[Rfam]
RNA sequence: GCUCAUGCCCGACUUGACACAACAUUCUGCAGCAAUGUUGUGCGACCUGCAGUGUCAGUCGGAAUUGAGC
Numbered sequence: 001g002c003u004c005a006u007g008c009c010c011g012a013c014u015u016g017a018c019a020c021a022a023c024a025u026u027c028u029g030c031a032g033c034a035a036u037g038u039u040g041u042g043c044g045a046c047c048u049g050c051a052g053u054g055u056c057a058g059u060c061g062g063a064a065u066u067g068a069g070c
Stems, first nucleotide, its partner, number of pairs: 001070005009062005021039006044056003
Rfam assigns this 70-nucleotide RNA from Viridothelium virens to the family "bZIP non canonical Hac1/Xbp1 intron".
It is annotated as a small RNA.
It scores 52 bits against the family's covariance model.
Rfam describes the family as follows. bZIP intron RNA is a non-canonical intron that was first reported in HAC1 gene in yeast and XBP1 gene in Metazoa.
A reference for the family is Hooks and Griffiths-Jones (2011), "Conserved RNA structures in the non-canonical Hac1/Xbp1 intron", RNA Biol.